[Rfam]
RNA: Guanidine-I riboswitch aptamer
Organism: Stenotrophobium rhamnosiphilum
RNA sequence: UGAGUUGGUGGCUAGGGUUCCAGCUUCGCGGGUUUGGCGAAGUGUUUGGUCCGAGAGCUGCCGUCCGGUUUAACACCGGAGCACGGCGGGAUAAAAGCCCGGGAGAC
Numbered sequence: 001u002g003a004g005u006u007g008g009u010g011g012c013u014a015g016g017g018u019u020c021c022a023g024c025u026u027c028g029c030g031g032g033u034u035u036g037g038c039g040a041a042g043u044g045u046u047u048g049g050u051c052c053g054a055g056a057g058c059u060g061c062c063g064u065c066c067g068g069u070u071u072a073a074c075a076c077c078g079g080a081g082c083a084c085g086g087c088g089g090g091a092u093a094a095a096a097g098c099c100c101g102g103g104a105g106a107c
Stems, first nucleotide, its partner, number of pairs: 007062006015052002020049002022046001023043006065079005082102001084105001088100003